[Rfam]
RNA sequence: AGUUGAAGUCCAUUUGUUUUAAUAUUUUCACCCCUUUGGGUCGAUAUUUUAUUUCUACACAGCAGUGCAGCAUCUGUCAGUACUUCUGGUGUCU
Numbered sequence: 001a002g003u004u005g006a007a008g009u010c011c012a013u014u015u016g017u018u019u020u021a022a023u024a025u026u027u028u029c030a031c032c033c034c035u036u037u038g039g040g041u042c043g044a045u046a047u048u049u050u051a052u053u054u055c056u057a058c059a060c061a062g063c064a065g066u067g068c069a070g071c072a073u074c075u076g077u078c079a080g081u082a083c084u085u086c087u088g089g090u091g092u093c094u
Stems, first nucleotide, its partner, number of pairs: 005055005012045003016041003020038003058089001060088003064084005070077002
The record is a 94-nucleotide RNA from Citrobacter freundii, which matches "ES056 sRNA" in Rfam. It scores 70 bits against the family's covariance model. About the family: Differentially expressed under several chemical stress and fermentation conditions. Pairs were carried over by alignment from the consensus structure, which was predicted with RNAfold. Rfam classes the family as a small RNA.